[Rfam]
This 179-nucleotide sequence from Ramphastos sulfuratus belongs to the Rfam family "U2 spliceosomal RNA". Rfam's curators write: U2 is a small nuclear RNA (snRNA) component of the spliceosome (involved in pre-mRNA splicing). For this family Rfam cites "Crystal structure of a model branchpoint-U2 snRNA duplex containing bulged adenosines" (Berglund et al., RNA, 2001). Lineage of the source: Eukaryota > Chordata > Dipnotetrapodomorpha > Coraciimorphae > Ramphastos. The family's RNA type in Rfam is spliceosomal small nuclear RNA.
RNA sequence: ACAGCUUUUCGGCUUUUUGCUUAAAAUUAAGUGUAGUAUUUGUUUUUGUCAGUUUAGUAUCUGGUACGUCCUCGCUUAGAAGACUUUACAUUAAACAGAUUUUUGGCCGUGGGAGUUGGAUCCGGAGGUUGCUUUCCCUGCUGCGCGCAUUGCGGAGGCGACGUUGUGGUGCGGAUUAG
Numbered sequence: 001a002c003a004g005c006u007u008u009u010c011g012g013c014u015u016u017u018u019g020c021u022u023a024a025a026a027u028u029a030a031g032u033g034u035a036g037u038a039u040u041u042g043u044u045u046u047u048g049u050c051a052g053u054u055u056a057g058u059a060u061c062u063g064g065u066a067c068g069u070c071c072u073c074g075c076u077u078a079g080a081a082g083a084c085u086u087u088a089c090a091u092u093a094a095a096c097a098g099a100u101u102u103u104u105g106g107c108c109g110u111g112g113g114a115g116u117u118g119g120a121u122c123c124g125g126a127g128g129u130u131g132c133u134u135u136c137c138c139u140g141c142u143g144c145g146c147g148c149a150u151u152g153c154g155g156a157g158g159c160g161a162c163g164u165u166g167u168g169g170u171g172c173g174g175a176u177u178a179g
Stems, first nucleotide, its partner, number of pairs: 007026003011022002014019001047066006068084003072080002112144001114142003118138002124135004147172009
It scores 78 bits against the family's covariance model.